[Rfam]
RNA sequence: AGGCUGGUGUAUGGGUCCUACGCAUAUCAGUGAGGACAUGUCUCAGAGACCGAGAUGGUGUGAUUGCUAGUACUGGUGUGGAAAACUAUAACCAGAACCACUCCAGGUCGGCUUUGGCUGGCUUGGAAAUCUUUGGGACCUAUAGCGGU
Numbered sequence: 001a002g003g004c005u006g007g008u009g010u011a012u013g014g015g016u017c018c019u020a021c022g023c024a025u026a027u028c029a030g031u032g033a034g035g036a037c038a039u040g041u042c043u044c045a046g047a048g049a050c051c052g053a054g055a056u057g058g059u060g061u062g063a064u065u066g067c068u069a070g071u072a073c074u075g076g077u078g079u080g081g082a083a084a085a086c087u088a089u090a091a092c093c094a095g096a097a098c099c100a101c102u103c104c105a106g107g108u109c110g111g112c113u114u115u116g117g118c119u120g121g122c123u124u125g126g127a128a129a130u131c132u133u134u135g136g137g138a139c140c141u142a143u144a145g146c147g148g149u
Base pairs, nucleotide, nucleotide: 020061021060022059023058026056027055028054034051035050102127103126104125105124106123107122108121109120110119111118112117142149143148
Notes
U4 spliceosomal RNA: a 149-nucleotide RNA sequence from Sclerotinia nivalis. From the family's description: U4 small nuclear RNA (U4 snRNA) is a component of the major U2-dependent spliceosome. The source organism's lineage runs through Eukaryota, Ascomycota, leotiomyceta, Leotiomycetes and Sclerotinia.